c-di-GMP-I riboswitch aptamer: a 136-nucleotide RNA sequence from Stieleria bergensis. Taxonomically the source falls in Stieleria (Bacteria, Pseudomonadati, Planctomycetota, Pirellulales).

RNA sequence: UUCGCGAAAAGGCAAGCCGGCCGCGAGGCCGUGCACGCAAAGUGACGGAUCUCUUUGGAAACCACUGAUUGGCAAAGCUAGGCGUUAAGCCUUCUCUGCGGACAGUGACGGGCGAAGAGAUGGCCGCAUUACCGAA
Numbered sequence: 001u002u003c004g005c006g007a008a009a010a011g012g013c014a015a016g017c018c019g020g021c022c023g024c025g026a027g028g029c030c031g032u033g034c035a036c037g038c039a040a041a042g043u044g045a046c047g048g049a050u051c052u053c054u055u056u057g058g059a060a061a062c063c064a065c066u067g068a069u070u071g072g073c074a075a076a077g078c079u080a081g082g083c084g085u086u087a088a089g090c091c092u093u094c095u096c097u098g099c100g101g102a103c104a105g106u107g108a109c110g111g112g113c114g115a116a117g118a119g120a121u122g123g124c125c126g127c128a129u130u131a132c133c134g135a136a
Stems, first nucleotide, its partner, number of pairs: 012038002017033001018031005041130004046126003049121009